[Rfam]
Nucleotides: 082
Stems, first nucleotide, its partner, number of pairs: 001082006
Number, partner (000 for none) and nucleotide at each position: 001082c002081a003080u004079c005078c006077c007000u008000a009000u010000g011000a012000u013000g014000a015000a016000u017000a018000u019000u020000u021000a022000u023000g024000a025000a026000g027000u028000u029000u030000u031000a032000a033000c034000g035000u036000u037000a038000a039000a040000a041000g042000u043000a044000g045000a046000c047000u048000g049000a050000u051000a052000u053000u054000c055000u056000u057000u058000g059000a060000a061000g062000a063000g064000a065000a066000a067000u068000g069000a070000g071000u072000u073000c074000u075000g076000a077006g078005g079004g080003a081002u082001g